[Rfam]
RNA sequence: GAUAGGCCGCUGUCGCUCCCGUGAUUGGACACUGACGCACGGUCAACUAGCCUUGUCCGGGCGGAUUCCGCGUGAGGGCGGGGGCGUUCCGAGCCACGAGGGGGGAGGCUCGGAGCGCCCCGG
Numbered sequence: 001g002a003u004a005g006g007c008c009g010c011u012g013u014c015g016c017u018c019c020c021g022u023g024a025u026u027g028g029a030c031a032c033u034g035a036c037g038c039a040c041g042g043u044c045a046a047c048u049a050g051c052c053u054u055g056u057c058c059g060g061g062c063g064g065a066u067u068c069c070g071c072g073u074g075a076g077g078g079c080g081g082g083g084g085c086g087u088u089c090c091g092a093g094c095c096a097c098g099a100g101g102g103g104g105g106a107g108g109c110u111c112g113g114a115g116c117g118c119c120c121c122g123g
Stems, first nucleotide, its partner, number of pairs: 001014005015051003021032003033045004058074002061071004083119013097104001
RNA: Streptomyces RNA 3920